[Rfam]
RNA sequence: GCGUGCUCUGGAUAGCAGCGGAAAUCCUUUGGAUUUUUGUUGACAGACAAAACAGGAAGUUGCGAGAGCGACUUCAGAAGUUCCUUGCAACAACAUGUUUUGUGGCUACAAAAACCAAAGAUUGAAGCGAAUAGCCAGCAAUAGC
Number, nucleotide and partner (000 for none) at each position: 001g000002c000003g000004u000005g000006c000007u000008c000009u137010g136011g135012a000013u133014a132015g000016c000017a000018g128019c127020g000021g000022a000023a123024a122025u121026c120027c000028u000029u118030u117031g116032g115033a000034u113035u112036u111037u000038u000039g000040u000041u000042g000043a000044c000045a000046g000047a000048c000049a000050a000051a000052a000053c000054a000055g000056g000057a000058a000059g000060u000061u000062g000063c000064g000065a000066g000067a000068g000069c000070g000071a000072c000073u000074u000075c000076a000077g000078a000079a000080g000081u000082u000083c000084c000085u000086u000087g000088c000089a000090a000091c000092a000093a000094c000095a000096u000097g000098u000099u000100u000101u000102g000103u000104g000105g000106c000107u000108a000109c000110a000111a036112a035113a034114a000115c032116c031117a030118a029119a000120g026121a025122u024123u023124g000125a000126a000127g019128c018129g000130a000131a000132u014133a013134g000135c011136c010137a009138g000139c000140a000141a000142u000143a000144g000145c000

This 145-nucleotide sequence from Profundicola chukchiensis belongs to the Rfam family "Flavo-1 RNA".
Lineage of the source: Bacteria > Bacteroidota > Flavobacteriia > Flavobacteriales > Profundicola.
By type it is a small RNA.